RNA sequence: UCUCGAUGACAGCUCGGGCAGGAGCGGGGAACCCAGGUUUCCCGGACCGCACCGCGGUCCUCGGGGUGAAGUCACGACAGUGACCGGGCUCUCCGGCCCGAACCCGACAGCUAACCUCGCAGGCGCGUGGAGGAACCCU
Dot-bracket structure: (((.................)))((((((....(............................)(((.....((((....))))..((((......))))...))).........))))))...................
Numbered sequence: 001u002c003u004c005g006a007u008g009a010c011a012g013c014u015c016g017g018g019c020a021g022g023a024g025c026g027g028g029g030a031a032c033c034c035a036g037g038u039u040u041c042c043c044g045g046a047c048c049g050c051a052c053c054g055c056g057g058u059c060c061u062c063g064g065g066g067u068g069a070a071g072u073c074a075c076g077a078c079a080g081u082g083a084c085c086g087g088g089c090u091c092u093c094c095g096g097c098c099c100g101a102a103c104c105c106g107a108c109a110g111c112u113a114a115c116c117u118c119g120c121a122g123g124c125g126c127g128u129g130g131a132g133g134a135a136c137c138c139u
Stems, first nucleotide, its partner, number of pairs: 001023003024120006034063001064105003072083004086099004